A member of the RNA family "c-di-GMP-I riboswitch aptamer" from Sporosarcina sp. BI001-red, 84 nucleotides long. A search with the family's covariance model found it, with a score of 80 bits.
RNA sequence: UAACUGAAUAGGCAAACCUAAAGAAAUUUAGGGACGCAAAGCUAUAGGGACUAAGGUGUAUCACUAUGUCUGCCAGUUGCCGAA
Numbered sequence: 001u002a003a004c005u006g007a008a009u010a011g012g013c014a015a016a017c018c019u020a021a022a023g024a025a026a027u028u029u030a031g032g033g034a035c036g037c038a039a040a041g042c043u044a045u046a047g048g049g050a051c052u053a054a055g056g057u058g059u060a061u062c063a064c065u066a067u068g069u070c071u072g073c074c075a076g077u078u079g080c081c082g083a084a
Stems, first nucleotide, its partner, number of pairs: 012037002017032006040078004047074002049070003056064003
Notes:
The family's consensus secondary structure is taken from published work.